[Rfam]
RNA sequence: CAGCAUGUUUCCACGCGCUGUGGCUGCUUAUGGCCAUGGGAUCUCCACCUGCAUGUGAGAGCAGUCUAGAGGGACUUGAACAGCUCAAGUCAACAAUGCCUGCAGCUGCCACUUGCCUUUCCUAUAAUG
Numbered sequence: 001c002a003g004c005a006u007g008u009u010u011c012c013a014c015g016c017g018c019u020g021u022g023g024c025u026g027c028u029u030a031u032g033g034c035c036a037u038g039g040g041a042u043c044u045c046c047a048c049c050u051g052c053a054u055g056u057g058a059g060a061g062c063a064g065u066c067u068a069g070a071g072g073g074a075c076u077u078g079a080a081c082a083g084c085u086c087a088a089g090u091c092a093a094c095a096a097u098g099c100c101u102g103c104a105g106c107u108g109c110c111a112c113u114u115g116c117c118u119u120u121c122c123u124a125u126a127a128u129g
Stems, first nucleotide, its partner, number of pairs: 011039002017034006069121005083109002086102002089099001
Notes
Shown here is a 129-nucleotide RNA from Propithecus coquereli, a member of the family "Small nucleolar RNA SNORA44". The family's consensus secondary structure was predicted with PFOLD. By type it is an H/ACA-box small nucleolar RNA. Rfam describes the family as follows. ACA44 is a member of the H/ACA class of snoRNA that guide the sites of modification of uridines to pseudouridines. The literature on the family includes a 2001 paper in EMBO J by Huttenhofer et al., "RNomics: an experimental approach that identifies 201 candidates for novel, small, non-messenger RNAs in mouse". Taxonomically the source falls in Propithecus (Eukaryota, Chordata, Teleostomi, Boreoeutheria). Its Rfam clan is "SNORA44 clan".